[Rfam]
RNA sequence: GGAUCAGUUGAUGAGCAAGAAGAGAAUUAAAAACUGCAACAAUAUGAUGGGGUUGCACUCCCAUGAUUCAUCACAAACCUCUGAUGAUC
Numbered sequence: 001g002g003a004u005c006a007g008u009u010g011a012u013g014a015g016c017a018a019g020a021a022g023a024g025a026a027u028u029a030a031a032a033a034c035u036g037c038a039a040c041a042a043u044a045u046g047a048u049g050g051g052g053u054u055g056c057a058c059u060c061c062c063a064u065g066a067u068u069c070a071u072c073a074c075a076a077a078c079c080u081c082u083g084a085u086g087a088u089c
Stems, first nucleotide, its partner, number of pairs: 001089002004087003049062003052058001

A member of the RNA family "Small nucleolar RNA Z199" from Zingiber officinale, 89 nucleotides long. Rfam links the family to the GO terms RNA processing and nucleolus. The family has 17 seed sequences and 953 matches in Rfam 15.1. On this family, see Chen et al., Nucleic Acids Res 2003: "The high diversity of snoRNAs in plants: identification and comparative study of 120 snoRNA genes from Oryza sativa". The base pairs follow the family's consensus structure, which was predicted with PFOLD. Rfam's curators write: snoZ199 is a C/D box small nucleolar RNA, which acts as a methylation guide RNA for sites on 18S and 25S rRNA. Rice snoZ199 is reported to be homologous to Arabidopsis snoR13.